[Rfam]
Rfam assigns this 152-nucleotide sequence from Culex quinquefasciatus to the family "U11 spliceosomal RNA". By type it is a spliceosomal small nuclear RNA. Taxonomically the source falls in Culex pipiens complex (Eukaryota, Bilateria, Nematocera, Culicomorpha).

RNA sequence: CAAAAGGGUGCUUGCUCUACGUUUAUAUGGCACACUUGGCAGAGUUUUAACAGACUUGGCCUGGUGAGGUAUGGUUAUCAAGACAUACCUAGCACAUAAUUUUUAACAACAGAAAGCUGUUGACUGCGAAUCCUUGUUCCGUCGGCGCUUUC
Numbered sequence: 001c002a003a004a005a006g007g008g009u010g011c012u013u014g015c016u017c018u019a020c021g022u023u024u025a026u027a028u029g030g031c032a033c034a035c036u037u038g039g040c041a042g043a044g045u046u047u048u049a050a051c052a053g054a055c056u057u058g059g060c061c062u063g064g065u066g067a068g069g070u071a072u073g074g075u076u077a078u079c080a081a082g083a084c085a086u087a088c089c090u091a092g093c094a095c096a097u098a099a100u101u102u103u104u105a106a107c108a109a110c111a112g113a114a115a116g117c118u119g120u121u122g123a124c125u126g127c128g129a130a131u132c133c134u135u136g137u138u139c140c141g142u143c144g145g146c147g148c149u150u151u152c
Base pairs, nucleotide, nucleotide: 008095009094010093011092012091013032014031015030016029033066034065035064036063038061039060040059042057043056044055045054046053067090068089069088070087071086072085073084114150115149116148117147119146120145121144122143123142125141126140128138